[Rfam]
Overview:
This 376-nucleotide RNA sequence from Gemella sp. zg-570 belongs to the Rfam family "Bacterial RNase P class B". The source organism's lineage runs through Bacteria, Bacillota, Bacilli, Gemellaceae and Gemella. Rfam describes the family as follows. Ribonuclease P (RNase P) is a ubiquitous endoribonuclease, found in archaea, bacteria and eukarya as well as chloroplasts and mitochondria. Pairs were carried over by alignment from the consensus structure, which is taken from published work. Gene Ontology terms of the family: dimeric ribonuclease P complex, ribonuclease P activity and tRNA processing. It is annotated as a ribozyme. The family is grouped with related families in Rfam's "RNaseP clan".
RNA sequence: CUUUUGAUGUGGUCGCGCCUAACGGUGAGGAAAGUCCAUACUCGCACAAGCUGAGAUGCUUGUAGUGUUCAUGCUAAACAAAAAAAUAAGUUUGGGUACACCCAGUGUAACGGCAGACAAUUAAUCCUAAGUACCUGGUAUAUGGAUUAAUAAAUCUUGAAGGUGCCACAGUGACGUAGUUUUUAUAGAAAUAUAAAAAGUGGAACGCGGUAAACCCCUUGAGCGAGCAAUUCAAAUUUUGGUAGAAGCACUUAUUUCGUAGAAAUGAAUACAGAAAUAGGAGAUUUAAUAUCUAGACAGAUGACCACAGCUAUUACUUACAAGAGCAUUAGUUACUCGUUAUAGUAAGAGUAGUUACAGAAUAUGGCUUAUGAUA
Numbered sequence: 001c002u003u004u005u006g007a008u009g010u011g012g013u014c015g016c017g018c019c020u021a022a023c024g025g026u027g028a029g030g031a032a033a034g035u036c037c038a039u040a041c042u043c044g045c046a047c048a049a050g051c052u053g054a055g056a057u058g059c060u061u062g063u064a065g066u067g068u069u070c071a072u073g074c075u076a077a078a079c080a081a082a083a084a085a086a087u088a089a090g091u092u093u094g095g096g097u098a099c100a101c102c103c104a105g106u107g108u109a110a111c112g113g114c115a116g117a118c119a120a121u122u123a124a125u126c127c128u129a130a131g132u133a134c135c136u137g138g139u140a141u142a143u144g145g146a147u148u149a150a151u152a153a154a155u156c157u158u159g160a161a162g163g164u165g166c167c168a169c170a171g172u173g174a175c176g177u178a179g180u181u182u183u184u185a186u187a188g189a190a191a192u193a194u195a196a197a198a199a200g201u202g203g204a205a206c207g208c209g210g211u212a213a214a215c216c217c218c219u220u221g222a223g224c225g226a227g228c229a230a231u232u233c234a235a236a237u238u239u240u241g242g243u244a245g246a247a248g249c250a251c252u253u254a255u256u257u258c259g260u261a262g263a264a265a266u267g268a269a270u271a272c273a274g275a276a277a278u279a280g281g282a283g284a285u286u287u288a289a290u291a292u293c294u295a296g297a298c299a300g301a302u303g304a305c306c307a308c309a310g311c312u313a314u315u316a317c318u319u320a321c322a323a324g325a326g327c328a329u330u331a332g333u334u335a336c337u338c339g340u341u342a343u344a345g346u347a348a349g350a351g352u353a354g355u356u357a358c359a360g361a362a363u364a365u366g367g368c369u370u371a372u373g374a375u376a
Base pairs, nucleotide, nucleotide: 004376007372008309009308010307011306012305013304014303016027017026018025019024032370033369034368036367037366038365039364040363041227042226043225044224045223046063047062048061049060050059051058069222070221071220073218074095075094076093077092078091079090096111097109098108099107100106101105112217113216115157116156117155124147125146126145127144131141132140133139163215164214165211166210167209180199181198182197183196184195185194186193187192231247232246233245251281252280253279254278255277256276257275282294283293284292285291311354312353313352314351315350